[Rfam]
This 105-nucleotide RNA sequence belongs to the Rfam family "Guanidine-I riboswitch aptamer". A search with the family's covariance model found it, with a score of 76 bits. For this family Rfam cites "New RNA motifs suggest an expanded scope for riboswitches in bacterial genetic control" (Barrick et al., Proc Natl Acad Sci U S A, 2004). Rfam's curators write: This family represents a conserved RNA structure found upstream of the ykkC and yxkD genes in Bacillus subtilis and related genes in other bacteria.
RNA sequence: GUGAGGCGCGUCUAGGGUUCCGCCGGUCGCCGGGUCUGGUCCGAGAGACGCAGGCGGUCCGCUACGCGGCAGACCGUUCCACGGCGGGACAAAAACCCGGGAGGC
Numbered sequence: 001g002u003g004a005g006g007c008g009c010g011u012c013u014a015g016g017g018u019u020c021c022g023c024c025g026g027u028c029g030c031c032g033g034g035u036c037u038g039g040u041c042c043g044a045g046a047g048a049c050g051c052a053g054g055c056g057g058u059c060c061g062c063u064a065c066g067c068g069g070c071a072g073a074c075c076g077u078u079c080c081a082c083g084g085c086g087g088g089a090c091a092a093a094a095a096c097c098c099g100g101g102a103g104g105c
Stems, first nucleotide, its partner, number of pairs: 008051005015042002020039002022036001023033004053078007080100001082103001086098003